This 117-nucleotide sequence from Psychrobacter piechaudii belongs to the Rfam family "ALIL pseudoknot". A search with the family's covariance model found it, with a score of 84 bits.
RNA sequence: UGGUCUUGAAGCCCAGGCGGAGCUCGACCGCAAACCCAAGUAAUGGUUGAUUUUAUUGACGACCACAAACAACAGUAUGGAGUCGAGCCAAUCUGUAGAGUAUUACCGAUUGCUCCA
Numbered sequence: 001u002g003g004u005c006u007u008g009a010a011g012c013c014c015a016g017g018c019g020g021a022g023c024u025c026g027a028c029c030g031c032a033a034a035c036c037c038a039a040g041u042a043a044u045g046g047u048u049g050a051u052u053u054u055a056u057u058g059a060c061g062a063c064c065a066c067a068a069a070c071a072a073c074a075g076u077a078u079g080g081a082g083u084c085g086a087g088c089c090a091a092u093c094u095g096u097a098g099a100g101u102a103u104u105a106c107c108g109a110u111u112g113c114u115c116c117a
Stems, first nucleotide, its partner, number of pairs: 017031004078117005089112002092109002095106004
About this RNA:
Rfam classes the family as a cis-regulatory element. A reference for the family is Mazauric et al. (2008), "Apical loop-internal loop RNA pseudoknots: a new type of stimulator of -1 translational frameshifting in bacteria", J Biol Chem. The family's consensus secondary structure is taken from published work. The family has 26 seed sequences and 2,146 matches in Rfam 15.1. The source organism's lineage runs through Bacteria, Gammaproteobacteria, Moraxellales, Moraxellaceae and Psychrobacter.